[Rfam]
RNA sequence: CAUAGUAGCAGCGUUAGUCGGGUUAGAACCCCGACGGCCGAAUGAGUAAGGGUUCCUCGGCAAUGUUGAUCAGCCGAGGGUUAGUCGAUCCUAAGUCCCCCCGCAAUUCGAAGGGGACAAAUGGGAAACUGGUUAAUAUUCCAGUACCGUCGUGCAUUCAAAGGUGACGCUUUGGGGCCGACCGAGCCGGGCACUCGCCCGGUCAAACCGUCAAAGUCCGUGGAAGCCGUAAUGGCACGAAGCGGACGAACGGCGGGAUAGCGCAAGUCGGUUCAACCCAGAGCCCGUGAAAAGCCGAGCACGACGAUCGUACCGAGAUCCGACACAGGUACUCAUGGCGGCGAAAGCCAAGGCCUGU
Numbered sequence: 001c002a003u004a005g006u007a008g009c010a011g012c013g014u015u016a017g018u019c020g021g022g023u024u025a026g027a028a029c030c031c032c033g034a035c036g037g038c039c040g041a042a043u044g045a046g047u048a049a050g051g052g053u054u055c056c057u058c059g060g061c062a063a064u065g066u067u068g069a070u071c072a073g074c075c076g077a078g079g080g081u082u083a084g085u086c087g088a089u090c091c092u093a094a095g096u097c098c099c100c101c102c103g104c105a106a107u108u109c110g111a112a113g114g115g116g117a118c119a120a121a122u123g124g125g126a127a128a129c130u131g132g133u134u135a136a137u138a139u140u141c142c143a144g145u146a147c148c149g150u151c152g153u154g155c156a157u158u159c160a161a162a163g164g165u166g167a168c169g170c171u172u173u174g175g176g177g178c179c180g181a182c183c184g185a186g187c188c189g190g191g192c193a194c195u196c197g198c199c200c201g202g203u204c205a206a207a208c209c210g211u212c213a214a215a216g217u218c219c220g221u222g223g224a225a226g227c228c229g230u231a232a233u234g235g236c237a238c239g240a241a242g243c244g245g246a247c248g249a250a251c252g253g254c255g256g257g258a259u260a261g262c263g264c265a266a267g268u269c270g271g272u273u274c275a276a277c278c279c280a281g282a283g284c285c286c287g288u289g290a291a292a293a294g295c296c297g298a299g300c301a302c303g304a305c306g307a308u309c310g311u312a313c314c315g316a317g318a319u320c321c322g323a324c325a326c327a328g329g330u331a332c333u334c335a336u337g338g339c340g341g342c343g344a345a346a347g348c349c350a351a352g353g354c355c356u357g358u
Base pairs, nucleotide, nucleotide: 017035018034019033020032021031022030036355037354038353039352044334045333046332047331050314051313055079056078057077058076059075060074064072065071086310087309088308090124091123095118096117097116098115099114100113102110103109128145129144130143131142132141148306149305150304151303152302153301154300155299163296164295165294169284170283171282172281173280174279175278176277180273181272182271183270184269186203187202188201189200190199208256209255210254211253217246218245219244220243221242226236227235228234262267320329321328336350337349338348339347
Annotation: This 358-nucleotide part of an RNA from Halalkalicoccus jeotgali belongs to the Rfam family "Archaeal large subunit ribosomal RNA". Its Rfam clan is "LSU clan". The base pairs follow the family's consensus structure, which is taken from published work.